[Rfam]
RNA: Purine riboswitch aptamer
Nucleotides: 102
Stems, first nucleotide, its partner, number of pairs: 020086006030048005058078007
Number, partner (000 for none) and nucleotide at each position: 001000g002000u003000g004000c005000u006000a007000u008000g009000a010000c011000a012000a013000c014000a015000g016000a017000a018000a019000c020086c021085u022084c023083a024082u025081a026000u027000a028000a029000a030048g031047u032046c033045g034044a035000u036000a037000a038000u039000a040000g041000g042000g043000u044034u045033c046032g047031a048030c049000a050000g051000u052000u053000u054000c055000u056000a057000c058078a059077g060076g061075a062074u063073a064072a065000c066000c067000g068000a069000u070000a071000a072064u073063u074062a075061u076060u077059c078058u079000g080000c081025u082024a083023u084022g085021a086020g087000u088000g089000a090000a091000a092000g093000u094000g095000u096000a097000u098000c099000u100000a101000g102000g